The family of this 83-nucleotide RNA sequence from Cytobacillus depressus is "c-di-GMP-I riboswitch aptamer". A search with the family's covariance model found it, with a score of 62 bits.
RNA sequence: CCGCAAAAAUGGCAAUUUCGUUGAAAAACGAUUACGCAAAGCCACAGGCCUAUGGCAAUUGCUAUGUUCGCAGGGCUACCAAA
Numbered sequence: 001c002c003g004c005a006a007a008a009a010u011g012g013c014a015a016u017u018u019c020g021u022u023g024a025a026a027a028a029c030g031a032u033u034a035c036g037c038a039a040a041g042c043c044a045c046a047g048g049c050c051u052a053u054g055g056c057a058a059u060u061g062c063u064a065u066g067u068u069c070g071c072a073g074g075g076c077u078a079c080c081a082a083a
Stems, first nucleotide, its partner, number of pairs: 012037002018031005040077004045073001047071001048068001050066001055062002